RNA: Plastid-ycf3 group II-D1 intron
Organism: Cabomba furcata
RNA sequence: UCCCUUCUAUCGUGUAUCCUCGAUUGAUGCAACCUUAGAUGCUUCAA
Numbered sequence: 001u002c003c004c005u006u007c008u009a010u011c012g013u014g015u016a017u018c019c020u021c022g023a024u025u026g027a028u029g030c031a032a033c034c035u036u037a038g039a040u041g042c043u044u045c046a047a
Base pairs, nucleotide, nucleotide: 009024010023011022012021031043033041